[Rfam]
RNA sequence: UCAAAGCCGUCUGGAGAGAGGCUGCCAAGGCAGUCCACCGAAGGGGCAAGCAGAACCGGGUUCUGUAAACUCUCAGGUAUCAGGGACAGGGGGAGAGGC
Numbered sequence: 001u002c003a004a005a006g007c008c009g010u011c012u013g014g015a016g017a018g019a020g021g022c023u024g025c026c027a028a029g030g031c032a033g034u035c036c037a038c039c040g041a042a043g044g045g046g047c048a049a050g051c052a053g054a055a056c057c058g059g060g061u062u063c064u065g066u067a068a069a070c071u072c073u074c075a076g077g078u079a080u081c082a083g084g085g086a087c088a089g090g091g092g093g094a095g096a097g098g099c
Stems, first nucleotide, its partner, number of pairs: 007093002010090004020035004037078003040074002044072003050066005
Dot-bracket structure: ......((.((((......((((........)))).(((((..(((...(((((.......)))))...))))).)))........)))).))......
RNA: Glycine riboswitch aptamer
Organism: Marinobacter litoralis